[Rfam]
RNA sequence: AUGCAUGUUGGGGAAUGCACAGUAUUCCUGCCUUUGUGGAAUACUCUUUACCCUUUGCAUGCAAUAUUAUAUAGCUAUGGAGUUAUCAGGGCUGCCAGCUGUUGAGUACAGGCUGAGUGGUAGUAUAUUACUCCCACAAUU
Numbered sequence: 001a002u003g004c005a006u007g008u009u010g011g012g013g014a015a016u017g018c019a020c021a022g023u024a025u026u027c028c029u030g031c032c033u034u035u036g037u038g039g040a041a042u043a044c045u046c047u048u049u050a051c052c053c054u055u056u057g058c059a060u061g062c063a064a065u066a067u068u069a070u071a072u073a074g075c076u077a078u079g080g081a082g083u084u085a086u087c088a089g090g091g092c093u094g095c096c097a098g099c100u101g102u103u104g105a106g107u108a109c110a111g112g113c114u115g116a117g118u119g120g121u122a123g124u125a126u127a128u129u130a131c132u133c134c135c136a137c138a139a140u141u
Base pairs, nucleotide, nucleotide: 003062004061005060006059007058008057021045022044023043024042025041026040027039028038079134080133081132082131091121092120095117096115097114098113099112100111
A member of the RNA family "Small nucleolar RNA U109" from Xenopus laevis, 141 nucleotides long. It scores 72 bits against the family's covariance model. Gene Ontology terms of the family: RNA processing and nucleolus. On this family, see Gu et al., Nucleic Acids Res 2005: "A novel experimental approach for systematic identification of box H/ACA snoRNAs from eukaryotes". The family has 26 seed sequences and 1,405 matches in Rfam 15.1.